[Rfam]
Group II catalytic intron D1-D4-2: a 119-nucleotide RNA sequence from Psychroflexus torquis. A reference for the family is Bonen and Vogel (2001), "The ins and outs of group II introns", Trends Genet. Its family is annotated with Group II intron splicing in the Gene Ontology. Pairs were carried over by alignment from the consensus structure. The organism belongs to Psychroflexus torquis, within Bacteria.
RNA sequence: GGAGGUAGGUCCUCCGAUGAGGGUUUUUAGGAAAACUCAUCAAACCACUUCUAUGACGCAUCCAAGGCAACAAAGAUGUGUGAAGCGAUAGAAGAAAAGGCUAUUUAAAAUAGUCAGGU
Numbered sequence: 001g002g003a004g005g006u007a008g009g010u011c012c013u014c015c016g017a018u019g020a021g022g023g024u025u026u027u028u029a030g031g032a033a034a035a036c037u038c039a040u041c042a043a044a045c046c047a048c049u050u051c052u053a054u055g056a057c058g059c060a061u062c063c064a065a066g067g068c069a070a071c072a073a074a075g076a077u078g079u080g081u082g083a084a085g086c087g088a089u090a091g092a093a094g095a096a097a098a099g100g101c102u103a104u105u106u107a108a109a110a111u112a113g114u115c116a117g118g119u
Stems, first nucleotide, its partner, number of pairs: 001015005016041006024034004046118001048094002051091004056081001058079003062075001099115006